A member of the RNA family "Fungal signal recognition particle RNA" from Coniochaeta hoffmannii, 293 nucleotides long.
Rfam classes the family as a non-coding RNA gene.
Pairs were carried over by alignment from the consensus structure, which is taken from published work.
The source organism's lineage runs through Eukaryota, Opisthokonta, Fungi, leotiomyceta and Coniochaeta.
The literature on the family includes a 2002 paper in Curr Opin Struct Biol by Wild et al., "Towards the structure of the mammalian signal recognition particle".
RNA sequence: CGGCUGUAAUGGUCAUACUGGUUAGAAGGCACUUGAAAUUUCGCCUUUCACUGUCCCAUUUCCGUCAGAUCCCCCUAGCGUCGCCCAGCGCGAACGCCGCGGUGGCCGCCCACUCGCUCGGGUAACCAGCGAUUGCUGCGUGUGGCCCUAAGCAAUGAAGAUGACACUUGAGGGAGGCUCUACUCUGCAGAGGCAUCUUCACCGUCGCGUGGCGUGUUGGAUCACGAUCGCUAGGGGCUUGGGACUGCGGGAGGCGAUGGAGAUGUCGACUCCAUUAUUCUUUUGUCAGUUUU
Numbered sequence: 001c002g003g004c005u006g007u008a009a010u011g012g013u014c015a016u017a018c019u020g021g022u023u024a025g026a027a028g029g030c031a032c033u034u035g036a037a038a039u040u041u042c043g044c045c046u047u048u049c050a051c052u053g054u055c056c057c058a059u060u061u062c063c064g065u066c067a068g069a070u071c072c073c074c075c076u077a078g079c080g081u082c083g084c085c086c087a088g089c090g091c092g093a094a095c096g097c098c099g100c101g102g103u104g105g106c107c108g109c110c111c112a113c114u115c116g117c118u119c120g121g122g123u124a125a126c127c128a129g130c131g132a133u134u135g136c137u138g139c140g141u142g143u144g145g146c147c148c149u150a151a152g153c154a155a156u157g158a159a160g161a162u163g164a165c166a167c168u169u170g171a172g173g174g175a176g177g178c179u180c181u182a183c184u185c186u187g188c189a190g191a192g193g194c195a196u197c198u199u200c201a202c203c204g205u206c207g208c209g210u211g212g213c214g215u216g217u218u219g220g221a222u223c224a225c226g227a228u229c230g231c232u233a234g235g236g237g238c239u240u241g242g243g244a245c246u247g248c249g250g251g252a253g254g255c256g257a258u259g260g261a262g263a264u265g266u267c268g269a270c271u272c273c274a275u276u277a278u279u280c281u282u283u284u285g286u287c288a289g290u291u292u293u
Stems, first nucleotide, its partner, number of pairs: 002014003017290006025282002028279002033269004038264003044256001046254004051249001073237002076233005081227003085220008094210004099205004104147001106145004110138001111135002114132005120127002148152001156201007167192003174185003